Notes
A member of the RNA family "Vault RNA" from Perca fluviatilis, 95 nucleotides long. The base pairs follow the family's consensus structure, which is taken from published work. From the family's description: This family of RNAs are found as part of the enigmatic vault ribonucleoprotein complex. The complex consists of a major vault protein (MVP), two minor vault proteins (VPARP and TEP1), and several small untranslated RNA molecules. A search with the family's covariance model found it, with a score of 62 bits. Rfam classes the family as a non-coding RNA gene.
[Rfam]
RNA sequence: UCGGCGGUUUAACUCAGUGGUUACUUCCACUCAAAUGUUGAUUCCUAGCUCCUCUGGGUCAGGGGUUCGAACCACGGGCGCUGUCUGCUGUUUUU
Numbered sequence: 001u002c003g004g005c006g007g008u009u010u011a012a013c014u015c016a017g018u019g020g021u022u023a024c025u026u027c028c029a030c031u032c033a034a035a036u037g038u039u040g041a042u043u044c045c046u047a048g049c050u051c052c053u054c055u056g057g058g059u060c061a062g063g064g065g066u067u068c069g070a071a072c073c074a075c076g077g078g079c080g081c082u083g084u085c086u087g088c089u090g091u092u093u094u095u
Base pairs, nucleotide, nucleotide: 002090003089004088005087006086007085013078014077015076017075018074019073020072025071026070027069029067